[Rfam]
RNA sequence: AAAGAGUCAGGCAAAAAGGCUGGGAACAGGCAGAGCAUGGAUGGGACUACUAACAGAAAUUAUCUGUUUUUGGCUCUACCCAUGCACUGCCUCUUCCCUGGCUCCUGCCUCUUCCUUUUCU
Numbered sequence: 001a002a003a004g005a006g007u008c009a010g011g012c013a014a015a016a017a018g019g020c021u022g023g024g025a026a027c028a029g030g031c032a033g034a035g036c037a038u039g040g041a042u043g044g045g046a047c048u049a050c051u052a053a054c055a056g057a058a059a060u061u062a063u064c065u066g067u068u069u070u071u072g073g074c075u076c077u078a079c080c081c082a083u084g085c086a087c088u089g090c091c092u093c094u095u096c097c098c099u100g101g102c103u104c105c106u107g108c109c110u111c112u113u114c115c116u117u118u119u120c121u
Base pairs, nucleotide, nucleotide: 017103018102020100022098023097024096025095026094028092029091030090031089032088033087035085036084037083038082039081040080044076045075

Shown here is a 121-nucleotide RNA from Turnera subulata, a member of the family "MIR408 microRNA precursor family".
The base pairs follow the family's consensus structure, which was predicted with WAR.
The literature on the family includes a 2009 paper in BMC Genomics by Mica et al., "High throughput approaches reveal splicing of primary microRNA transcripts and tissue specific expression of mature microRNAs in Vitis vinifera".
Rfam links the family to the GO terms miRNA-mediated post-transcriptional gene silencing and RISC complex.